[Rfam]
RNA: Small nucleolar RNA snR80
Organism: Fusarium flagelliforme
RNA sequence: GAACCCUUGACUCACUCUGAAAUCUACCAUCAUGCUCCGUGGUUUAUUUCUAUUUUUGUGCAAGGAAGAGGAACCAAAGCCCCAUACUCACCGCGACAUACUAGCUUUCAAGCUCUUGUGGAUGUAGCGGUCCAUCAUCAAUGGCUACAU
Numbered sequence: 001g002a003a004c005c006c007u008u009g010a011c012u013c014a015c016u017c018u019g020a021a022a023u024c025u026a027c028c029a030u031c032a033u034g035c036u037c038c039g040u041g042g043u044u045u046a047u048u049u050c051u052a053u054u055u056u057u058g059u060g061c062a063a064g065g066a067a068g069a070g071g072a073a074c075c076a077a078a079g080c081c082c083c084a085u086a087c088u089c090a091c092c093g094c095g096a097c098a099u100a101c102u103a104g105c106u107u108u109c110a111a112g113c114u115c116u117u118g119u120g121g122a123u124g125u126a127g128c129g130g131u132c133c134a135u136c137a138u139c140a141a142u143g144g145c146u147a148c149a150u
Stems, first nucleotide, its partner, number of pairs: 007063003019050005026043003078146004091130004096125003101121002